[Rfam]
RNA sequence: GAUUACUCGUUGGGGUGUCCCGGGAAACCGGGGCUGAGAGGCUUUGCCAACCCAUCGAACCUGAUCCGGUUCAUGCCGGCGGAGGGAACGGGUAAAGCACGGAU
Numbered sequence: 001g002a003u004u005a006c007u008c009g010u011u012g013g014g015g016u017g018u019c020c021c022g023g024g025a026a027a028c029c030g031g032g033g034c035u036g037a038g039a040g041g042c043u044u045u046g047c048c049a050a051c052c053c054a055u056c057g058a059a060c061c062u063g064a065u066c067c068g069g070u071u072c073a074u075g076c077c078g079g080c081g082g083a084g085g086g087a088a089c090g091g092g093u094a095a096a097g098c099a100c101g102g103a104u
Base pairs, nucleotide, nucleotide: 006092007091008090009089010088011054012053013052014051017034018033019032020031021030041047042046060085061084062083066079067078068077069076
Rfam assigns this 104-nucleotide RNA from Paenirhodobacter populi to the family "TPP riboswitch aptamer (THI element)". Taxonomically the source falls in Paenirhodobacter (Bacteria, Pseudomonadati, Pseudomonadota, Alphaproteobacteria). The family's consensus secondary structure is taken from published work. The match comes from Rfam's covariance-model search (70 bits).